Background:
Rfam assigns this 67-nucleotide RNA from Cnephaeus nilssonii to the family "mir-9256 microRNA precursor family".
RNA sequence: AUAUACACUGAGUGGCCAGAUUAUUAUGGUCUCUCACCACAUAAUAAUCUGGCCUCUCAGUGUAUAU
Numbered sequence: 001a002u003a004u005a006c007a008c009u010g011a012g013u014g015g016c017c018a019g020a021u022u023a024u025u026a027u028g029g030u031c032u033c034u035c036a037c038c039a040c041a042u043a044a045u046a047a048u049c050u051g052g053c054c055u056c057u058c059a060g061u062g063u064a065u066a067u
Base pairs, nucleotide, nucleotide: 004064005063006062007061008060009059010058011057012056014054015053016052017051019049020048021047022046023045024044025043026042027041028040

Rfam links the family to the GO terms RISC complex and miRNA-mediated post-transcriptional gene silencing. The organism belongs to Cnephaeus, within Eukaryota.